[Rfam]
RNA sequence: CGCAGCAUCACGGGAGAGCGUCACGUCAGGUGGCCGCCGAAGGAGCAACACCUCCUCGUCAAACUCUCAGGCACCCAGGACCGCGAUACUGAC
Numbered sequence: 001c002g003c004a005g006c007a008u009c010a011c012g013g014g015a016g017a018g019c020g021u022c023a024c025g026u027c028a029g030g031u032g033g034c035c036g037c038c039g040a041a042g043g044a045g046c047a048a049c050a051c052c053u054c055c056u057c058g059u060c061a062a063a064c065u066c067u068c069a070g071g072c073a074c075c076c077a078g079g080a081c082c083g084c085g086a087u088a089c090u091g092a093c
Base pairs, nucleotide, nucleotide: 007087008086009085011083012082013081020034021033022032023031036072037071038070039068040067043066044065045064050059051058
Dot-bracket structure: ......(((.(((......((((.......)))).(((((..(((....((......))....))))).)))........))).)))......